Rfam assigns this 115-nucleotide RNA sequence from Butyrivibrio sp. XB500-5 to the family "FMN riboswitch aptamer (RFN element)".
[Rfam]
RNA sequence: AAUAAUCUUCAGGGCAGGGUGCAAGUCCCUACCGGUGGUAUAGCCCACGAGCCGAAAGGCAUGAAUCGGUGAAACUCCGAUGCCGACAGUAUAGUCUGGAUGAAAGAAGAGCUGU
Numbered sequence: 001a002a003u004a005a006u007c008u009u010c011a012g013g014g015c016a017g018g019g020u021g022c023a024a025g026u027c028c029c030u031a032c033c034g035g036u037g038g039u040a041u042a043g044c045c046c047a048c049g050a051g052c053c054g055a056a057a058g059g060c061a062u063g064a065a066u067c068g069g070u071g072a073a074a075c076u077c078c079g080a081u082g083c084c085g086a087c088a089g090u091a092u093a094g095u096c097u098g099g100a101u102g103a104a105a106g107a108a109g110a111g112c113u114g115u
Stems, first nucleotide, its partner, number of pairs: 006110005017029003031095002033085002035048004043083002053059001065081005087098003